[Rfam]
Small nucleolar RNA SNORD77: a 69-nucleotide RNA from Phascolarctos cinereus. For this family Rfam cites "Guide RNAs with 5' caps and novel box C/D snoRNA-like domains for modification of snRNAs in metazoa" (Tycowski et al., Curr Biol, 2004). NCBI's taxonomy places the organism under Eukaryota, Metazoa, Craniata, Dipnotetrapodomorpha, Phascolarctos. A search with the family's covariance model found it, with a score of 61 bits. It is annotated as a C/D-box small nucleolar RNA. Rfam's curators write: U77 belongs to the C/D family of snoRNAs. It is predicted to guide 2'O-ribose methylation of large 28S rRNA subunit at position A1521. The C/D snoRNAs U44, U47, U74, U75, U76, U78, U79, U80 and U81 share the same host gene as U77 (non-coding). Rfam links the family to the GO terms nucleolus and RNA processing.
RNA sequence: AUACUAUGAUGGUUGCAUAGUUCAGCAGAUAGACUAAUGAAUACUUAACCUUAUUUAUCUGAUGUGUCU
Numbered sequence: 001a002u003a004c005u006a007u008g009a010u011g012g013u014u015g016c017a018u019a020g021u022u023c024a025g026c027a028g029a030u031a032g033a034c035u036a037a038u039g040a041a042u043a044c045u046u047a048a049c050c051u052u053a054u055u056u057a058u059c060u061g062a063u064g065u066g067u068c069u
Base pairs, nucleotide, nucleotide: 001067002066003065004064006038007037009035013028014027015026016025043056046053047052